Shown here is a 72-nucleotide RNA from Streptomyces ipomoeae, a member of the family "tRNA". Rfam classes the family as a transfer RNA. It scores 46 bits against the family's covariance model.
[Rfam]
Nucleotides: 072
Base pairs, nucleotide, nucleotide: 001071002070003069004068005067006066007065010024011023012022013021027041028040029039030038047064048063049062050061052060
Number, partner (000 for none) and nucleotide at each position: 001071g002070c003069g004068g005067g006066u007065g008000u009000a010024g011023u012022u013021u014000a015000g016000u017000a018000g019000c020000a021013g022012a023011a024010c025000a026000a027041c028040c029039c030038c031000c032000u033000u034000c035000c036000a037000g038030g039029g040028g041027g042000a043000a044000g045000g046000c047064g048063c049062a050061g051000u052060g053000u054000g055000c056000a057000a058000u059000u060052c061050c062049u063048g064047u065007c066006a067005c068004c069003c070002g071001c072000u